[Rfam]
RNA sequence: GUGCGGGUCCUGCGCAAUGAAACACUGUGAACCAUGUCAGGCGGGGAACCGAGCAGCAUUAAGCAGUUUGUUUCGUGUGACGCAGUUACGCCUGCACGCC
Numbered sequence: 001g002u003g004c005g006g007g008u009c010c011u012g013c014g015c016a017a018u019g020a021a022a023c024a025c026u027g028u029g030a031a032c033c034a035u036g037u038c039a040g041g042c043g044g045g046g047a048a049c050c051g052a053g054c055a056g057c058a059u060u061a062a063g064c065a066g067u068u069u070g071u072u073u074c075g076u077g078u079g080a081c082g083c084a085g086u087u088a089c090g091c092c093u094g095c096a097c098g099c100c
Stems, first nucleotide, its partner, number of pairs: 004094005010085005015077001017076006024067005034059004042051003
Dot-bracket structure: ...(((((.((((((.((((((.(((((.....((((....(((....)))....))))...)))))...)))))))...)))))....)))))......

The record is a 100-nucleotide RNA from Ruminococcus sp. CAG:579, which matches "Bacterial small signal recognition particle RNA" in Rfam. The match comes from Rfam's covariance-model search (70 bits). The base pairs follow the family's consensus structure, which is taken from published work. Rfam classes the family as a non-coding RNA gene.